This 265-nucleotide RNA sequence from Siminovitchia fortis belongs to the Rfam family "Bacterial large signal recognition particle RNA". It scores 228 bits against the family's covariance model. On this family, see Rosenblad et al., Nucleic Acids Res 2003: "SRPDB: Signal Recognition Particle Database". The family's RNA type in Rfam is non-coding RNA gene.

[Rfam]
RNA sequence: CCGUGCUAGACGGGGAAGUAGCGGAGCCCUGUACCCGAAAUCCGCUCCAGCGGGGUUGAAUCCCUUCCAGAGGCUGCUGUUUUGUCUGGCCUGCCUCAAGUAAGUGGUGUAGACACCCGGGUCCCGCGCAAUGGGAACCCACGAACCAUGUCAGGUCCGGAAGGAAGCAGCAUUAAGUGGAACCUCUCAUGUGCCGCGGGGCAGCCUGGGUCGAGCUAACUGCUUGGGUAACGCAGAUGAAGCACUGUCGAAGGAAGGUGCGCGG
Numbered sequence: 001c002c003g004u005g006c007u008a009g010a011c012g013g014g015g016a017a018g019u020a021g022c023g024g025a026g027c028c029c030u031g032u033a034c035c036c037g038a039a040a041u042c043c044g045c046u047c048c049a050g051c052g053g054g055g056u057u058g059a060a061u062c063c064c065u066u067c068c069a070g071a072g073g074c075u076g077c078u079g080u081u082u083u084g085u086c087u088g089g090c091c092u093g094c095c096u097c098a099a100g101u102a103a104g105u106g107g108u109g110u111a112g113a114c115a116c117c118c119g120g121g122u123c124c125c126g127c128g129c130a131a132u133g134g135g136a137a138c139c140c141a142c143g144a145a146c147c148a149u150g151u152c153a154g155g156u157c158c159g160g161a162a163g164g165a166a167g168c169a170g171c172a173u174u175a176a177g178u179g180g181a182a183c184c185u186c187u188c189a190u191g192u193g194c195c196g197c198g199g200g201g202c203a204g205c206c207u208g209g210g211u212c213g214a215g216c217u218a219a220c221u222g223c224u225u226g227g228g229u230a231a232c233g234c235a236g237a238u239g240a241a242g243c244a245c246u247g248u249c250g251a252a253g254g255a256a257g258g259u260g261c262g263c264g265g
Stems, first nucleotide, its partner, number of pairs: 001265006009057003012030004019023001034054004063258006072249003076245001079243010092230002096227006104220002106217003115211008123200006129191002132189005139180004148173004156165003